Shown here is a 69-nucleotide sequence from Rhizobium tibeticum, a member of the family "S-element". This family represents a group of S-elements from p42d and related plasmids. The S-element has multiple functions and is believed to act as a negative regulator of repC transcription, be required for efficient replication and act as a translational enhancer of repC. The match comes from Rfam's covariance-model search (80 bits). The source organism's lineage runs through Bacteria, Pseudomonadati, Pseudomonadota, Hyphomicrobiales and Rhizobium. The base pairs follow the family's consensus structure, which is taken from published work.
RNA sequence: AGUCAAGAGUCUUUGGCAUCGUUAUUGGUGAGCGGAUUUCUUUUGCCUUUUGGAAGGUGAAGGAAGAUG
Numbered sequence: 001a002g003u004c005a006a007g008a009g010u011c012u013u014u015g016g017c018a019u020c021g022u023u024a025u026u027g028g029u030g031a032g033c034g035g036a037u038u039u040c041u042u043u044u045g046c047c048u049u050u051u052g053g054a055a056g057g058u059g060a061a062g063g064a065a066g067a068u069g
Stems, first nucleotide, its partner, number of pairs: 010064005017059004022055002025052001027051002030048001032046005